Rfam assigns this 133-nucleotide sequence from Castor canadensis to the family "Small nucleolar RNA SNORA51". It is annotated as an H/ACA-box small nucleolar RNA. ACA51 is a member of the H/ACA class of snoRNA that guide the sites of modification of uridines to pseudouridines. The organism belongs to Castor, within Eukaryota. Rfam links the family to the GO terms nucleolus and RNA processing.

RNA sequence: GGCCUCCUGGUGCUUACCAUAGGCUGUGUUCUUAUAUGACUGCAUAGAUAAAGAGGAAGGAAAGUAAACCUACCCUAAUUGCAUUUCAACCCAGACUCUGUGCCUGGUCUGUAUCGUGAGUAGGAAGAUAUGG
Number, nucleotide and partner (000 for none) at each position: 001g000002g000003c059004c000005u057006c056007c055008u054009g000010g000011u000012g000013c000014u000015u000016a000017c000018c000019a000020u042021a041022g040023g000024c000025u000026g000027u036028g035029u034030u000031c000032u000033u000034a029035u028036a027037u000038g000039a000040c022041u021042g020043c000044a000045u000046a000047g000048a000049u000050a000051a000052a000053g000054a008055g007056g006057a005058a000059g003060g000061a000062a000063a000064g000065u000066a000067a000068a000069c000070c000071u000072a000073c000074c124075c123076u122077a121078a000079u000080u000081g000082c000083a000084u000085u000086u000087c111088a110089a000090c000091c107092c106093a105094g104095a000096c102097u000098c000099u000100g000101u000102g096103c000104c094105u093106g092107g091108u000109c000110u088111g087112u000113a000114u000115c000116g000117u000118g000119a000120g000121u077122a076123g075124g074125a000126a000127g000128a000129u000130a000131u000132g000133g000